RNA sequence: GGCUGCUCCAAAGGUAGUGCGUUAUCUCGAUUCAUCGUUCACAGUCCAUUACAGAUAGAACUCCUGCUUCUACUCUUUCCCCCUUCUUACUACUGCACUCGACUAGCCUUAA
Numbered sequence: 001g002g003c004u005g006c007u008c009c010a011a012a013g014g015u016a017g018u019g020c021g022u023u024a025u026c027u028c029g030a031u032u033c034a035u036c037g038u039u040c041a042c043a044g045u046c047c048a049u050u051a052c053a054g055a056u057a058g059a060a061c062u063c064c065u066g067c068u069u070c071u072a073c074u075c076u077u078u079c080c081c082c083c084u085u086c087u088u089a090c091u092a093c094u095g096c097a098c099u100c101g102a103c104u105a106g107c108c109u110u111a112a
Stems, first nucleotide, its partner, number of pairs: 001108005007102002011099001014096002016091004021086001043074003048069001

Rfam assigns this 112-nucleotide sequence from Cercocebus atys to the family "Y RNA". A search with the family's covariance model found it, with a score of 54 bits. The base pairs follow the family's consensus structure, which is taken from published work. Y RNAs are components of the Ro ribonucleoprotein particle (Ro RNP), in association with Ro60 and La proteins.